This 116-nucleotide RNA from secondary endosymbiont of Heteropsylla cubana belongs to the Rfam family "Ribosomal S15 leader". The match comes from Rfam's covariance-model search (79 bits). Rfam classes the family as a cis-regulatory leader. The family's consensus secondary structure is taken from published work. Rfam links the family to the GO term regulation of translation, ncRNA-mediated. Lineage of the source: Bacteria > Pseudomonadati > Pseudomonadota > Gammaproteobacteria > aphid secondary symbionts. The family is grouped with related families in Rfam's "Ribosomal Protein S15 Leader clan". About the family: The E. coli Ribosomal S15 gene 5' UTR can form two alternative structures. One that is a series of three hairpins, The other includes a pseudoknot. This structure causes translational regulation of the S15 protein. The alignment of this family contains only the final two hairpins which are conserved in other species, and also includes the complete region that forms the alternate structures.
[Rfam]
RNA sequence: AUAAAUUGCUGAAUUAGAGAUCGGCGCCUAUUAUUUCAUAAUUAUUUUGGAGUUUAACGGUGUCUCUAAAAAUGAAAGAAAAAACAAAAAUCUUAACUGAUUUCGGACGUAAUAUU
Numbered sequence: 001a002u003a004a005a006u007u008g009c010u011g012a013a014u015u016a017g018a019g020a021u022c023g024g025c026g027c028c029u030a031u032u033a034u035u036u037c038a039u040a041a042u043u044a045u046u047u048u049g050g051a052g053u054u055u056a057a058c059g060g061u062g063u064c065u066c067u068a069a070a071a072a073u074g075a076a077a078g079a080a081a082a083a084a085c086a087a088a089a090a091u092c093u094u095a096a097c098u099g100a101u102u103u104c105g106g107a108c109g110u111a112a113u114a115u116u
Stems, first nucleotide, its partner, number of pairs: 007026006046070007